[Rfam]
Overview
Shown here is a 113-nucleotide RNA from Propithecus coquereli, a member of the family "Y RNA". From the family's description: Y RNAs are components of the Ro ribonucleoprotein particle (Ro RNP), in association with Ro60 and La proteins. The Y RNAs and Ro60 and La proteins are well conserved, but the function of the Ro RNP is not known. In humans the RNA component can be one of four small RNAs -- hY1, hY3, hY4 and hY5. The organism belongs to Propithecus, within Eukaryota. Rfam classes the family as a non-coding RNA gene.
RNA sequence: GGCUGGUCUGAAGGUAGUGAGUUAUCUCACUUGGUUGUUCACAGUCAGUUACAGACCGAACUCCUUGUUCUACUCUUUCCCACCUUCUCACUACCACAUUUGACUAGUCUAAA
Numbered sequence: 001g002g003c004u005g006g007u008c009u010g011a012a013g014g015u016a017g018u019g020a021g022u023u024a025u026c027u028c029a030c031u032u033g034g035u036u037g038u039u040c041a042c043a044g045u046c047a048g049u050u051a052c053a054g055a056c057c058g059a060a061c062u063c064c065u066u067g068u069u070c071u072a073c074u075c076u077u078u079c080c081c082a083c084c085u086u087c088u089c090a091c092u093a094c095c096a097c098a099u100u101u102g103a104c105u106a107g108u109c110u111a112a113a
Base pairs, nucleotide, nucleotide: 001109002108003107004106005105006104007103008102010101011100014097015096016092017091018090019089020088021087044074047071048070